[Rfam]
RNA sequence: AAUAAAAAAAUACCAACCACCUAUAUAAUGUCAUGAUAUGGAUGCUAGUCUCUACCCGGAGCCGUAAAUUCCGGACUAUAUGUGAGUUAAAUUAAGCG
Numbered sequence: 001a002a003u004a005a006a007a008a009a010a011u012a013c014c015a016a017c018c019a020c021c022u023a024u025a026u027a028a029u030g031u032c033a034u035g036a037u038a039u040g041g042a043u044g045c046u047a048g049u050c051u052c053u054a055c056c057c058g059g060a061g062c063c064g065u066a067a068a069u070u071c072c073g074g075a076c077u078a079u080a081u082g083u084g085a086g087u088u089a090a091a092u093u094a095a096g097c098g
Base pairs, nucleotide, nucleotide: 018084019083020082022080023079024078025077029047030046032044033043034042056074057073058072059071060070061069
Annotation:
Rfam assigns this 98-nucleotide sequence from Dellaglioa algida to the family "Purine riboswitch aptamer". From the family's description: Riboswitches are metabolite binding domains within certain messenger RNAs that serve as precision sensors for their corresponding targets. The source organism's lineage runs through Bacteria, Bacillota, Bacilli, Lactobacillaceae and Dellaglioa algida. The family's consensus secondary structure is taken from published work. It scores 67 bits against the family's covariance model. Gene Ontology term of the family: purine nucleobase biosynthetic process.